[Rfam]
About this RNA
The record is a 264-nucleotide RNA from Dehalogenimonas formicexedens, which matches "T-box leader" in Rfam. Uncharged tRNA acts as the effector for transcription antitermination of genes in the T-box leader family. T-boxes are found upstream of many aminoacyl-tRNA synthetase genes and some amino acid biosynthetic genes usually in Gram-positive bacteria. The anticodon of a specific tRNA base pairs to a specifier sequence within the T-box motif, and the NCCA acceptor tail of the tRNA base pairs to a conserved bulge in the T-box antiterminator hairpin. Rfam classes the family as a cis-regulatory leader. Pairs were carried over by alignment from the consensus structure, which is taken from published work.
RNA sequence: UUAAAAGCGUUGAUCCAGACGAGUAAACGUCAGGCGGGCUUCAGAGAGCCGGGUUAGGUGUGAGCCGGCAGUUGCGCGGGGGUUGAAUGGACUGGGGAGCUGCGGACCGAAAGAGAUUCGAGUAGGCUUCGCCGGGAAGGGCGCCGUUAAACGGCCCAGGGUAUCGUCUUAGACCGUACCCGACAAGAGAUUGAUUCUUUAGCCCUAAGGCUUUUGAAUCGAACCAGGGUGGCACCGCGAGGUAUUUGAGCCUUCGCCCCUAGU
Numbered sequence: 001u002u003a004a005a006a007g008c009g010u011u012g013a014u015c016c017a018g019a020c021g022a023g024u025a026a027a028c029g030u031c032a033g034g035c036g037g038g039c040u041u042c043a044g045a046g047a048g049c050c051g052g053g054u055u056a057g058g059u060g061u062g063a064g065c066c067g068g069c070a071g072u073u074g075c076g077c078g079g080g081g082g083u084u085g086a087a088u089g090g091a092c093u094g095g096g097g098a099g100c101u102g103c104g105g106a107c108c109g110a111a112a113g114a115g116a117u118u119c120g121a122g123u124a125g126g127c128u129u130c131g132c133c134g135g136g137a138a139g140g141g142c143g144c145c146g147u148u149a150a151a152c153g154g155c156c157c158a159g160g161g162u163a164u165c166g167u168c169u170u171a172g173a174c175c176g177u178a179c180c181c182g183a184c185a186a187g188a189g190a191u192u193g194a195u196u197c198u199u200u201a202g203c204c205c206u207a208a209g210g211c212u213u214u215u216g217a218a219u220c221g222a223a224c225c226a227g228g229g230u231g232g233c234a235c236c237g238c239g240a241g242g243u244a245u246u247u248g249a250g251c252c253u254u255c256g257c258c259c260c261u262a263g264u
Base pairs, nucleotide, nucleotide: 007100008099015095016094017093018092026084027083028082030080031079037073038072039071048069049068050067051066052065103131104130105129106128108126133146134145135144192221193220194219195218196217197216226261227260228259229258237257238256239255240254241253